[Rfam]
RNA: Makes More Granules Regulator RNA (mmgR)
Nucleotides: 071
Stems, first nucleotide, its partner, number of pairs: 008019004038056007
Number, partner (000 for none) and nucleotide at each position: 001000c002000g003000u004000c005000a006000c007000c008019g009018c010017c011016c012000a013000u014000u015000c016011g017010g018009g019008c020000g021000u022000u023000u024000c025000c026000u027000c028000c029000c030000u031000a032000g033000a034000c035000u036000u037000g038056g039055g040054c041053c042052g043051c044050g045000c046000c047000a048000g049000u050044c051043g052042c053041g054040g055039c056038c057000c058000u059000u060000u061000u062000u063000u064000c065000g066000u067000c068000g069000g070000g071000a